A member of the RNA family "Eukaryotic large subunit ribosomal RNA" from Zymoseptoria tritici, 434 nucleotides of a longer RNA. Rfam 15.1 lists 107,465 matches to the family in 2,616 species. For this family Rfam cites "Crystal structure of the ribosome at 5.5 A resolution" (Yusupov et al., Science, 2001). Pairs were carried over by alignment from the consensus structure, which is taken from published work. Lineage of the source: Eukaryota > Opisthokonta > Fungi > Mycosphaerellales > Zymoseptoria tritici.
RNA sequence: GGUAGUAGCAAAUACUCAAAUGAGAACUUUGAGGACUGAAGUGGGGAAAGGUUCCGUGUGAACAGCAGUUGGACACGGGUUAGUCGAUCCUAAGCCAUAGGGAAAUUCCGUUUUAAAGUGCACACUCCGUGCCGCCCGGCGAAAGGGAAACCGGUUAACAUUCCGGUACCUGGAUGUGGAUUAUCCGCGGCAACGCAACUGAAGGUGGAGACGUCGGCGGGGGCCCCGGGAAGAGUUCUCUUUUCUUCUUAACGGUCCGUCACCCUGAAAUCGGUUUGUCCGGAGCUAGGGUUUAACGACCGGUAGAGCGGCGCACCUUUGCGCCGUCCGGUGCGCUCCCGACGAUCCUUGAAAAUCCACCGGAAGGAAUGAUUUUCACGCCAGGUCGUACUCAUAACCGCAGCAGGUCUCCAAGGUGAACAGCCUCUAGUUGA
Numbered sequence: 001g002g003u004a005g006u007a008g009c010a011a012a013u014a015c016u017c018a019a020a021u022g023a024g025a026a027c028u029u030u031g032a033g034g035a036c037u038g039a040a041g042u043g044g045g046g047a048a049a050g051g052u053u054c055c056g057u058g059u060g061a062a063c064a065g066c067a068g069u070u071g072g073a074c075a076c077g078g079g080u081u082a083g084u085c086g087a088u089c090c091u092a093a094g095c096c097a098u099a100g101g102g103a104a105a106u107u108c109c110g111u112u113u114u115a116a117a118g119u120g121c122a123c124a125c126u127c128c129g130u131g132c133c134g135c136c137c138g139g140c141g142a143a144a145g146g147g148a149a150a151c152c153g154g155u156u157a158a159c160a161u162u163c164c165g166g167u168a169c170c171u172g173g174a175u176g177u178g179g180a181u182u183a184u185c186c187g188c189g190g191c192a193a194c195g196c197a198a199c200u201g202a203a204g205g206u207g208g209a210g211a212c213g214u215c216g217g218c219g220g221g222g223g224c225c226c227c228g229g230g231a232a233g234a235g236u237u238c239u240c241u242u243u244u245c246u247u248c249u250u251a252a253c254g255g256u257c258c259g260u261c262a263c264c265c266u267g268a269a270a271u272c273g274g275u276u277u278g279u280c281c282g283g284a285g286c287u288a289g290g291g292u293u294u295a296a297c298g299a300c301c302g303g304u305a306g307a308g309c310g311g312c313g314c315a316c317c318u319u320u321g322c323g324c325c326g327u328c329c330g331g332u333g334c335g336c337u338c339c340c341g342a343c344g345a346u347c348c349u350u351g352a353a354a355a356u357c358c359a360c361c362g363g364a365a366g367g368a369a370u371g372a373u374u375u376u377c378a379c380g381c382c383a384g385g386u387c388g389u390a391c392u393c394a395u396a397a398c399c400g401c402a403g404c405a406g407g408u409c410u411c412c413a414a415g416g417u418g419a420a421c422a423g424c425c426u427c428u429a430g431u432u433g434a
Stems, first nucleotide, its partner, number of pairs: 015033006034432004043412004049392002054078006063071002085388003089146002094140002097111002100109003120132002150167005170384004175380005180374001187196003204361006213346004218341007226331003229249006253302005262292006271283004309326007398407002414426004